[Rfam]
RNA sequence: UCGAAGGCUCGUCUGCUAGAAAAUUUUGCGCGCAGGUCCGACCAUCAACAUUCGGGCCCACUUUCCUCAGUGAAGGUGUCCCUGCGCA
Numbered sequence: 001u002c003g004a005a006g007g008c009u010c011g012u013c014u015g016c017u018a019g020a021a022a023a024u025u026u027u028g029c030g031c032g033c034a035g036g037u038c039c040g041a042c043c044a045u046c047a048a049c050a051u052u053c054g055g056g057c058c059c060a061c062u063u064u065c066c067u068c069a070g071u072g073a074a075g076g077u078g079u080c081c082c083u084g085c086g087c088a
Stems, first nucleotide, its partner, number of pairs: 030087004035058007059078007

Rfam assigns this 88-nucleotide RNA sequence from Synechococcus sp. CC9311 to the family "ATPC RNA motif".
NCBI's taxonomy places the organism under Bacteria, Bacillati, Synechococcales, Synechococcaceae, Synechococcus.
For this family Rfam cites "Identification of 22 candidate structured RNAs in bacteria using the CMfinder comparative genomics pipeline" (Weinberg et al., Nucleic Acids Res, 2007).
The match comes from Rfam's covariance-model search (58 bits).
The family's RNA type in Rfam is non-coding RNA gene.